Shown here is a 158-nucleotide RNA from Glycine max, a member of the family "MIR4371 microRNA precursor family". Pairs were carried over by alignment from the consensus structure, which was predicted with RNAalifold. A search with the family's covariance model found it, with a score of 132 bits. The source organism's lineage runs through Eukaryota, Gunneridae, rosids, fabids and Glycine subgen. Soja. Its Rfam clan is "MIR4387 microRNA precursor clan".
[Rfam]
RNA sequence: UCGUUAAACGAUGUUAUGAUAAACGAAGUGUCACGUCAUCACGUCUUGUUACUAACACGUCAUUGCCAUGUCAUCGAAGGUGAUGGCGUGACAAUGAGGUGUCCGUGACAAGGUGUGAUGACAUGACACUUCGUGUGUCAUGUCAUCGCUUAACGAAA
Numbered sequence: 001u002c003g004u005u006a007a008a009c010g011a012u013g014u015u016a017u018g019a020u021a022a023a024c025g026a027a028g029u030g031u032c033a034c035g036u037c038a039u040c041a042c043g044u045c046u047u048g049u050u051a052c053u054a055a056c057a058c059g060u061c062a063u064u065g066c067c068a069u070g071u072c073a074u075c076g077a078a079g080g081u082g083a084u085g086g087c088g089u090g091a092c093a094a095u096g097a098g099g100u101g102u103c104c105g106u107g108a109c110a111a112g113g114u115g116u117g118a119u120g121a122c123a124u125g126a127c128a129c130u131u132c133g134u135g136u137g138u139c140a141u142g143u144c145a146u147c148g149c150u151u152a153a154c155g156a157a158a
Base pairs, nucleotide, nucleotide: 001156002155003154004153005152006151007150009148010147011146012145013144015142016141017140018139019138020137021136023134024133025132026131027130028129029128030127031126032125033124035122036121037120038119039118040117041116042115043114044113045112046111048109049108050107051106052105055102056101057100058099070087071086072085073084074083

Background: Its family is annotated with miRNA-mediated post-transcriptional gene silencing and RISC complex in the Gene Ontology.